[Rfam]
RNA sequence: UGAAGUUAGGUAGAGGUGUAUGGAGUGAGAGAUGUGAAUUCAUGUUUGGAUUAUUUUCAUUGAAUUUUCACUCCCUCAUUCCAUAUAUCAUCUAACCAACUUAGU
Numbered sequence: 001u002g003a004a005g006u007u008a009g010g011u012a013g014a015g016g017u018g019u020a021u022g023g024a025g026u027g028a029g030a031g032a033u034g035u036g037a038a039u040u041c042a043u044g045u046u047u048g049g050a051u052u053a054u055u056u057u058c059a060u061u062g063a064a065u066u067u068u069c070a071c072u073c074c075c076u077c078a079u080u081c082c083a084u085a086u087a088u089c090a091u092c093u094a095a096c097c098a099a100c101u102u103a104g105u
Base pairs, nucleotide, nucleotide: 005100006099007098009096011094012093013092014091015089016088017087018086019085020084021083022082023081024080025079026078027077028076029075031073032072034071035070036069037068038067048058049057050056
This 105-nucleotide sequence from Lathyrus oleraceus belongs to the Rfam family "MIR1507 microRNA precursor family". Gene Ontology terms of the family: miRNA-mediated post-transcriptional gene silencing and RISC complex. Taxonomically the source falls in Lathyrus (Eukaryota, Viridiplantae, Spermatophyta, Magnoliopsida). It scores 86 bits against the family's covariance model.